[Rfam]
RNA sequence: GAAAUGCCGUCUGGAGAGCCGCCACUUCACGUGGCGCACCGAAGGAGCAAAUCCGUUGCGAAGGUGCAACAGAUGAAUCUCUCAGGUACCGAGGACAGGGGGAGCGGC
Numbered sequence: 001g002a003a004a005u006g007c008c009g010u011c012u013g014g015a016g017a018g019c020c021g022c023c024a025c026u027u028c029a030c031g032u033g034g035c036g037c038a039c040c041g042a043a044g045g046a047g048c049a050a051a052u053c054c055g056u057u058g059c060g061a062a063g064g065u066g067c068a069a070c071a072g073a074u075g076a077a078u079c080u081c082u083c084a085g086g087u088a089c090c091g092a093g094g095a096c097a098g099g100g101g102g103a104g105c106g107g108c
Stems, first nucleotide, its partner, number of pairs: 007102002010099004020036004038087003041083002045081003051074002
This 108-nucleotide RNA from Variovorax gossypii belongs to the Rfam family "Glycine riboswitch aptamer". Gene Ontology term of the family: glycine biosynthetic process.